[Rfam]
Nucleotides: 373
Base pairs, nucleotide, nucleotide: 001369002368003367004366005365006364007363008362009361010360011358012316013315014314015313016312017311018310020041021040023038024037025036026035027034028033046356047355048354050353051352052351053350054349055225056224057223058222062252063251064250065249067221068220069219070218071217072086073085074084075083076082087101088099089098090097091096102216103215107214108213109210110209124155125154126151127150128149129148130147131146133144134143135142136141163181164180165179166178167177168176183205184203185202186201187200188199189198190197191196229273230272231271232270238264239263240262241261242260243259244256245255246254247253280299281298282297283296284295285294286293287292
Number, partner (000 for none) and nucleotide at each position: 001369u002368g003367g004366g005365a006364u007363g008362c009361c010360c011358a012316u013315g014314c015313g016312g017311u018310c019000g020041c021040g022000u023038g024037c025036c026035g027034g028033a029000g030000a031000g032000a033028u034027c035026c036025g037024g038023c039000c040021c041020g042000a043000g044000g045000a046356a047355c048354g049000u050353c051352c052351g053350g054349g055225c056224u057223c058222c059000a060000c061000a062252g063251g064250g065249c066000a067221c068220g069219a070218u071217g072086g073085u074084g075083g076082g077000u078000a079000a080000c081000g082076c083075c084074c085073a086072c087101c088099c089098g090097g091096g092000g093000u094000g095000a096091c097090c098089c099088g100000a101087g102216a103215g104000c105000a106000a107214g108213u109210g110209c111000a112000g113000c114000a115000g116000a117000g118000a119000g120000c121000a122000g123000a124155c125154c126151g127150c128149c129148g130147g131146c132000g133144g134143g135142g136141c137000u138000c139000a140000g141136g142135c143134c144133c145000g146131g147130u148129c149128g150127g151126c152000a153000a154125g155124g156000g157000u158000g159000a160000a161000a162000c163181g164180g165179u166178g167177g168176u169000g170000u171000a172000a173000g174000a175000g176168a177167c178166c179165a180164c181163c182000a183205g184203u185202g186201g187200u188199c189198g190197u191196g192000g193000u194000g195000a196191c197190a198189c199188g200187g201186c202185c203184a204000g205183c206000u207000g208000g209110g210109c211000a212000a213108a214107c215103c216102u217071c218070a219069u220068c221067g222058g223057g224056a225055g226000c227000a228000a229273g230272a231271c232270c233000g234000a235000g236000c237000a238264g239263g240262a241261g242260g243259c244256g245255g246254g247253c248000g249065g250064c251063c252062c253247g254246u255245c256244c257000a258000u259243g260242c261241c262240u263239c264238c265000g266000g267000g268000u269000a270232g271231g272230u273229c274000g275000c276000u277000g278000g279000a280299g281298c282297g283296c284295g285294u286293c287292a288000g289000c290000g291000a292287u293286g294285g295284c296283g297282c298281g299280c300000c301000g302000a303000g304000a305000g306000a307000g308000a309000u310018g311017g312016c313015c314014g315013c316012a317000c318000c319000c320000g321000g322000u323000c324000g325000g326000g327000g328000u329000c330000u331000u332000c333000c334000c335000g336000a337000c338000c339000g340000g341000c342000g343000a344000c345000a346000g347000a348000a349054c350053c351052c352051g353050g354048c355047g356046u357000a358011u359000c360010g361009g362008g363007c364006a365005u366004c367003c368002c369001a370000u371000c372000c373000a